Rfam assigns this 108-nucleotide sequence from Gracilibacillus kekensis to the family "TPP riboswitch aptamer (THI element)". The family's consensus secondary structure is taken from published work. Gene Ontology term of the family: thiamine pyrophosphate binding.
RNA sequence: UAAAUCUGCUAGGGGUGCUACAGAAGUAGCUGAGAUAAGAAUGAUGUUCUUAAUCCCUUUGAACCUGAACUGGUUAACCCCAGCGUAGGAAAGUGGAGUCGGAUGGUG
Numbered sequence: 001u002a003a004a005u006c007u008g009c010u011a012g013g014g015g016u017g018c019u020a021c022a023g024a025a026g027u028a029g030c031u032g033a034g035a036u037a038a039g040a041a042u043g044a045u046g047u048u049c050u051u052a053a054u055c056c057c058u059u060u061g062a063a064c065c066u067g068a069a070c071u072g073g074u075u076a077a078c079c080c081c082a083g084c085g086u087a088g089g090a091a092a093g094u095g096g097a098g099u100c101g102g103a104u105g106g107u108g
Stems, first nucleotide, its partner, number of pairs: 006096005011058004016052001017030005037051005064089004070083004